This 367-nucleotide RNA sequence from Thyridium curvatum belongs to the Rfam family "Nuclear RNase P".

[Rfam]
RNA sequence: GUCGUCUUCAACGCUGCGUUUCUAUGCUACAAACAGAGAUGCGUCCUGCGGCUCUUCCGCAGGCCAUCUCAUAUUCCUUCUCAAGGAAGGACCGUGCAUAUGAGAAAUUCGGAGAAAUGUCUUCAAUCUUUACCGCAGUCGCCAUGCCCAGCGUGGAAGGACGGGUCCGCCUGUGAGGGCCUCGCGCGACUCACGCGCGUGCAAUUGGCAUCAGAAAAGCAGGGCCCAGGCUGCUCCUCGGAGCACGACCUGGGUUCCUAUGGGAGAGCCGUUGCGAAGAUUGUGCUGAAGCACUUGAGUGCGAUACGCAGCGUACCAACCCUUUUUGGGGACGGUACAAUUCGAUUCCGAUUAUUCUGGAGACGAC
Numbered sequence: 001g002u003c004g005u006c007u008u009c010a011a012c013g014c015u016g017c018g019u020u021u022c023u024a025u026g027c028u029a030c031a032a033a034c035a036g037a038g039a040u041g042c043g044u045c046c047u048g049c050g051g052c053u054c055u056u057c058c059g060c061a062g063g064c065c066a067u068c069u070c071a072u073a074u075u076c077c078u079u080c081u082c083a084a085g086g087a088a089g090g091a092c093c094g095u096g097c098a099u100a101u102g103a104g105a106a107a108u109u110c111g112g113a114g115a116a117a118u119g120u121c122u123u124c125a126a127u128c129u130u131u132a133c134c135g136c137a138g139u140c141g142c143c144a145u146g147c148c149c150a151g152c153g154u155g156g157a158a159g160g161a162c163g164g165g166u167c168c169g170c171c172u173g174u175g176a177g178g179g180c181c182u183c184g185c186g187c188g189a190c191u192c193a194c195g196c197g198c199g200u201g202c203a204a205u206u207g208g209c210a211u212c213a214g215a216a217a218a219g220c221a222g223g224g225c226c227c228a229g230g231c232u233g234c235u236c237c238u239c240g241g242a243g244c245a246c247g248a249c250c251u252g253g254g255u256u257c258c259u260a261u262g263g264g265a266g267a268g269c270c271g272u273u274g275c276g277a278a279g280a281u282u283g284u285g286c287u288g289a290a291g292c293a294c295u296u297g298a299g300u301g302c303g304a305u306a307c308g309c310a311g312c313g314u315a316c317c318a319a320c321c322c323u324u325u326u327u328g329g330g331g332a333c334g335g336u337a338c339a340a341u342u343c344g345a346u347u348c349c350g351a352u353u354a355u356u357c358u359g360g361a362g363a364c365g366a367c
Base pairs, nucleotide, nucleotide: 001367002366003365004364008360009359010358013312014311015310016309017308018307019306023100024099025098026097036082037081038080039079110350111349112348113347114346121279122278123277124276169180170179171178172177183199184198185197186196187195201275202274203273204272207270208269209268221259222258223257313338314337315336316335317334
It scores 57 bits against the family's covariance model. Rfam classes the family as a ribozyme.